[Rfam]
RNA sequence: GGAUGGUUGAGAGGAGCUGCUUUUAGUACGAGAGGACCGAAGUGGACGAACCUCUGGUGUACCUGUUGUUCUGCCAAGGGCAAGUGCAGGGUAGCUAUGUUCGGAAGGGAUAACCGCUGAAGGCAUCUAAGUGGGAAGCCCACCUCAAGAUGAACCAUCCCUGAGGGUAUAACCCUCCUAAAGGCACCAGGAAGACUACCUGGUUGAUAGGCUGGAGGUCUACGUACAGUAAUGUACUCAGCCGACCAGUACUAAUAUGCCGUGAG
Numbered sequence: 001g002g003a004u005g006g007u008u009g010a011g012a013g014g015a016g017c018u019g020c021u022u023u024u025a026g027u028a029c030g031a032g033a034g035g036a037c038c039g040a041a042g043u044g045g046a047c048g049a050a051c052c053u054c055u056g057g058u059g060u061a062c063c064u065g066u067u068g069u070u071c072u073g074c075c076a077a078g079g080g081c082a083a084g085u086g087c088a089g090g091g092u093a094g095c096u097a098u099g100u101u102c103g104g105a106a107g108g109g110a111u112a113a114c115c116g117c118u119g120a121a122g123g124c125a126u127c128u129a130a131g132u133g134g135g136a137a138g139c140c141c142a143c144c145u146c147a148a149g150a151u152g153a154a155c156c157a158u159c160c161c162u163g164a165g166g167g168u169a170u171a172a173c174c175c176u177c178c179u180a181a182a183g184g185c186a187c188c189a190g191g192a193a194g195a196c197u198a199c200c201u202g203g204u205u206g207a208u209a210g211g212c213u214g215g216a217g218g219u220c221u222a223c224g225u226a227c228a229g230u231a232a233u234g235u236a237c238u239c240a241g242c243c244g245a246c247c248a249g250u251a252c253u254a255a256u257a258u259g260c261c262g263u264g265a266g
Stems, first nucleotide, its partner, number of pairs: 001160008011146004017045007047103005055097003062090005067082006107141003114134005163177005180263001183261004187203005208254003211250005217243002224237005
Record summary:
Rfam assigns this 266-nucleotide part of an RNA from Gracilinema caldarium to the family "Bacterial large subunit ribosomal RNA". The source organism's lineage runs through Bacteria, Spirochaetia, Treponematales, Breznakiellaceae and Gracilinema caldarium. It scores 2773 bits against the family's covariance model.